[Rfam]
RNA sequence: CUCAGGCAAAGUUCUGUGGUCCACUCUGACCGUGUGACACUGUGGUCAGUGCAUUACAGAACUUUGCUUUAGU
Numbered sequence: 001c002u003c004a005g006g007c008a009a010a011g012u013u014c015u016g017u018g019g020u021c022c023a024c025u026c027u028g029a030c031c032g033u034g035u036g037a038c039a040c041u042g043u044g045g046u047c048a049g050u051g052c053a054u055u056a057c058a059g060a061a062c063u064u065u066g067c068u069u070u071a072g073u
Base pairs, nucleotide, nucleotide: 004069005068006067007066008065009064010063011062012061013060014059015058016057022051023050024049025048028047029046030045031044
RNA: mir-148/mir-152 microRNA precursor family
Organism: Astyanax mexicanus